[Rfam]
RNA sequence: UGCAUGCUUUCCAUCAGCAUGCAAUUCUGUAGAGGCACACCUGAAUUGCCGGAAGUGCGGUAGGGACAACCCUCCAAUCAAUGGCAGACAAAGCGGAUCAAAGCUCUUGGCAGGGCGUUGGUCCAUCGAUCGCGCGUUUGAGCGUGCUAGACAG
Numbered sequence: 001u002g003c004a005u006g007c008u009u010u011c012c013a014u015c016a017g018c019a020u021g022c023a024a025u026u027c028u029g030u031a032g033a034g035g036c037a038c039a040c041c042u043g044a045a046u047u048g049c050c051g052g053a054a055g056u057g058c059g060g061u062a063g064g065g066a067c068a069a070c071c072c073u074c075c076a077a078u079c080a081a082u083g084g085c086a087g088a089c090a091a092a093g094c095g096g097a098u099c100a101a102a103g104c105u106c107u108u109g110g111c112a113g114g115g116c117g118u119u120g121g122u123c124c125a126u127c128g129a130u131c132g133c134g135c136g137u138u139u140g141a142g143c144g145u146g147c148u149a150g151a152c153a154g
Base pairs, nucleotide, nucleotide: 001023002022003021004020005019006018007017008016034050035049036048037047057135058134059133084094103118104117106115107114

Rfam assigns this 154-nucleotide sequence from Endobacterium cereale to the family "speF leader". The literature on the family includes a 2005 paper in Genome Biol by Corbino et al., "Evidence for a second class of S-adenosylmethionine riboswitches and other regulatory RNA motifs in alpha-proteobacteria". A search with the family's covariance model found it, with a score of 77 bits. Pairs were carried over by alignment from the consensus structure, which was predicted with RNAalifold.